This 157-nucleotide RNA sequence from Glycine max belongs to the Rfam family "MIR4371 microRNA precursor family". Gene Ontology terms of the family: miRNA-mediated post-transcriptional gene silencing and RISC complex. Clan: MIR4387 microRNA precursor clan. The match comes from Rfam's covariance-model search (114 bits).
RNA sequence: CCGUUGAGUGAUAACUUGAAAGACGAAGUGUUACAUCAUCAUGUCUUAUCAUUGCACCUCAUUGUCAUAUUAUCACCUUCAAUGAUGUGGCAAUGACAUGUCAAUGAUUAGAUUUGAUGAUGUGACACUUUGUAUGUCACAUCAUCACUUAACGUAC
Numbered sequence: 001c002c003g004u005u006g007a008g009u010g011a012u013a014a015c016u017u018g019a020a021a022g023a024c025g026a027a028g029u030g031u032u033a034c035a036u037c038a039u040c041a042u043g044u045c046u047u048a049u050c051a052u053u054g055c056a057c058c059u060c061a062u063u064g065u066c067a068u069a070u071u072a073u074c075a076c077c078u079u080c081a082a083u084g085a086u087g088u089g090g091c092a093a094u095g096a097c098a099u100g101u102c103a104a105u106g107a108u109u110a111g112a113u114u115u116g117a118u119g120a121u122g123u124g125a126c127a128c129u130u131u132g133u134a135u136g137u138c139a140c141a142u143c144a145u146c147a148c149u150u151a152a153c154g155u156a157c
Base pairs, nucleotide, nucleotide: 002154003153004152005151006150007149008148009147010146011145012144014142017139018138019137021135023133024132025131026130027129028128029127030126031125032124033123034122035121036120037119038118039117040116041115043113044112045111046110048108049107050106051105052104054102055100056099069086070085071084072083073082